This 117-nucleotide RNA belongs to the Rfam family "Flavobacterium-1 RNA". The family's consensus secondary structure is taken from published work.
RNA sequence: GCACGCUCGACUGCAUCUGCAUAAAGCCAUUUCCCUGGACCUAAGCUGUGAUCCGCAAGGUAGCGUCGAUACUUGGACCAGUAACGCUGAGUCACCUGAUCAGUGAGCGUUGCUGGU
Numbered sequence: 001g002c003a004c005g006c007u008c009g010a011c012u013g014c015a016u017c018u019g020c021a022u023a024a025a026g027c028c029a030u031u032u033c034c035c036u037g038g039a040c041c042u043a044a045g046c047u048g049u050g051a052u053c054c055g056c057a058a059g060g061u062a063g064c065g066u067c068g069a070u071a072c073u074u075g076g077a078c079c080a081g082u083a084a085c086g087c088u089g090a091g092u093c094a095c096c097u098g099a100u101c102a103g104u105g106a107g108c109g110u111u112g113c114u115g116g117u
Base pairs, nucleotide, nucleotide: 002075003074005072007069008068009067010042012039014037015036018029019028020026045064046063053060054059078116079115080114081113082112083111084110085109086108087107088106096103097102